A member of the RNA family "Purine riboswitch aptamer" from Cytobacillus kochii, 102 nucleotides long.

RNA sequence: AAUAACUUAAUAGUUGUCAUUCAUAUAAUAGCGGAAAUAUGGUCCGCGAGUUUCUACCGAAUAACCGUAAAUUAUUUGACUAUGGGUGAGCAAGUGGAGGAG
Numbered sequence: 001a002a003u004a005a006c007u008u009a010a011u012a013g014u015u016g017u018c019a020u021u022c023a024u025a026u027a028a029u030a031g032c033g034g035a036a037a038u039a040u041g042g043u044c045c046g047c048g049a050g051u052u053u054c055u056a057c058c059g060a061a062u063a064a065c066c067g068u069a070a071a072u073u074a075u076u077u078g079a080c081u082a083u084g085g086g087u088g089a090g091c092a093a094g095u096g097g098a099g100g101a102g
Stems, first nucleotide, its partner, number of pairs: 018088008029049001031047005058078007